[Rfam]
Record summary:
A member of the RNA family "Archaeal RNase P" from Methanobrevibacter ruminantium, 283 nucleotides long. By type it is a ribozyme. Taxonomically the source falls in Methanobrevibacter ruminantium (Archaea, Methanobacteriati, Methanobacteria, Methanobacteriaceae). Gene Ontology terms of the family: ribonuclease P activity, tRNA processing and multimeric ribonuclease P complex.

RNA sequence: GUAAGCCGAAGACAGCUGCUGGUUAUUUUUAACUAGGGAAACUCCGCACAUCAAAUAGACUGUAAAGUCGAAAGACUUAUGCUGAGAAGUAUGACUCUGGAGCAGAAACGACACGGCUUUUAAUGGAUGACAAUGAUGCUUGACUGAUGGACAUUAAAAGAAUCGGUGAAACGGCCAAUCUACAGGAUGCAAGAGCAAAGGUGCUGAUGACCUCUAUGGGAAGCAAAGUAGUUCGCUAAGACGAAUGCUGUAUAAAACAGAAUGUGGGUUACUCUCGGCAUAC
Numbered sequence: 001g002u003a004a005g006c007c008g009a010a011g012a013c014a015g016c017u018g019c020u021g022g023u024u025a026u027u028u029u030u031a032a033c034u035a036g037g038g039a040a041a042c043u044c045c046g047c048a049c050a051u052c053a054a055a056u057a058g059a060c061u062g063u064a065a066a067g068u069c070g071a072a073a074g075a076c077u078u079a080u081g082c083u084g085a086g087a088a089g090u091a092u093g094a095c096u097c098u099g100g101a102g103c104a105g106a107a108a109c110g111a112c113a114c115g116g117c118u119u120u121u122a123a124u125g126g127a128u129g130a131c132a133a134u135g136a137u138g139c140u141u142g143a144c145u146g147a148u149g150g151a152c153a154u155u156a157a158a159a160g161a162a163u164c165g166g167u168g169a170a171a172c173g174g175c176c177a178a179u180c181u182a183c184a185g186g187a188u189g190c191a192a193g194a195g196c197a198a199a200g201g202u203g204c205u206g207a208u209g210a211c212c213u214c215u216a217u218g219g220g221a222a223g224c225a226a227a228g229u230a231g232u233u234c235g236c237u238a239a240g241a242c243g244a245a246u247g248c249u250g251u252a253u254a255a256a257a258c259a260g261a262a263u264g265u266g267g268g269u270u271a272c273u274c275u276c277g278g279c280a281u282a283c
Base pairs, nucleotide, nucleotide: 001283002282003281005279006278007277008276009275010273011272012251013250014249015248016247020035021034022033023032024031040270041269042268044267045266046265047264048263049189050188051187052186055217056216057215058214060185061184062183063182064181065078066077067076068075069074079092080091081090082089083088093180094179098177099176100175114165115164116163117160118159119158120157121156122155123154124153135144193234194233195232196231202225203224204223205222